[Rfam]
CRISPR RNA direct repeat element: a 37-nucleotide RNA sequence from Petrachloros mirabilis. Taxonomically the source falls in Petrachloros mirabilis (Bacteria, Bacillati, Cyanobacteriota, Petrachloros). Pairs were carried over by alignment from the consensus structure, which was predicted with WAR. Its family is annotated with defense response in the Gene Ontology.
RNA sequence: GUUUCCGUCCCCUUGCGGGGUAAUGGUCGGGUCGAAC
Number, nucleotide and partner (000 for none) at each position: 001g000002u000003u000004u000005c026006c025007g000008u000009c020010c019011c018012c017013u000014u000015g000016c000017g012018g011019g010020g009021u000022a000023a000024u000025g006026g005027u000028c000029g000030g000031g000032u000033c000034g000035a000036a000037c000